[Rfam]
The record is a 107-nucleotide sequence from Streptococcus sp. DD10, which matches "Streptococcus RNA 266" in Rfam.
RNA sequence: AAUGAUGGUUUUUAACUUUUCAUUUUAGGUUUAUGGAAUUUUUCAUACAAGAAAAUAGGCUCCACAAUUCCUACAGUGGACUGACCCACUGCAGAAAUUAUAGAGUC
Numbered sequence: 001a002a003u004g005a006u007g008g009u010u011u012u013u014a015a016c017u018u019u020u021c022a023u024u025u026u027a028g029g030u031u032u033a034u035g036g037a038a039u040u041u042u043u044c045a046u047a048c049a050a051g052a053a054a055a056u057a058g059g060c061u062c063c064a065c066a067a068u069u070c071c072u073a074c075a076g077u078g079g080a081c082u083g084a085c086c087c088a089c090u091g092c093a094g095a096a097a098u099u100a101u102a103g104a105g106u107c
Base pairs, nucleotide, nucleotide: 001024002023003022004021005020008016009015027041028040029039030038031037058107059106060105061104062103064101066099067098068097069096071094074091075090076089077088078087079086
On this family, see Acebo et al., RNA 2012: "Identification of 88 regulatory small RNAs in the TIGR4 strain of the human pathogen Streptococcus pneumoniae".